[Rfam]
RNA sequence: UCGCUUUAGCUGGUUGAUUUCGGGUCAAAUUGUACUCUACUAUCAUUUGGUCCCCUUCAACCAGCUGUAGUUG
Dot-bracket structure: ..(((..((((((((((....((.((((((..............))))))))....))))))))))..)))..